[Rfam]
RNA sequence: AUCUCAAGAAGACGUCUCCUCCCAUUGCGUUUCUUGAGUGUUCCCCUCUGGAGGUUUUGUCAGAUCGACUUUAGUCUCUGAAACCUUCAAACUUCAGCCGGACAUUUGUCCGGCUUUUUUUU
Number, nucleotide and partner (000 for none) at each position: 001a039002u000003c038004u037005c036006a000007a034008g033009a032010a000011g000012a030013c029014g028015u027016c000017u000018c000019c000020u000021c000022c000023c000024a000025u000026u000027g015028c014029g013030u012031u000032u009033c008034u007035u000036g005037a004038g003039u001040g000041u000042u000043c000044c000045c000046c000047u000048c000049u089050g088051g087052a086053g085054g084055u083056u082057u081058u080059g079060u000061c000062a000063g000064a000065u000066c000067g000068a000069c000070u000071u000072u000073a000074g000075u000076c000077u000078c000079u059080g058081a057082a056083a055084c054085c053086u052087u051088c050089a049090a000091a000092c000093u000094u000095c000096a115097g114098c113099c112100g111101g110102a109103c108104a000105u000106u000107u000108g103109u102110c101111c100112g099113g098114c097115u096116u000117u000118u000119u000120u000121u000122u000
Record summary: The family of this 122-nucleotide RNA from Ditibartonella apis is "Alphaproteobacterial ar15". Its Rfam clan is "suhB sRNA clan". A search with the family's covariance model found it, with a score of 60 bits. NCBI's taxonomy places the organism under Bacteria, Pseudomonadota, Hyphomicrobiales, Bartonellaceae, Ditibartonella. A reference for the family is del Val et al. (2012), "A survey of sRNA families in alpha-proteobacteria", RNA Biol. Gene Ontology term of the family: protein binding.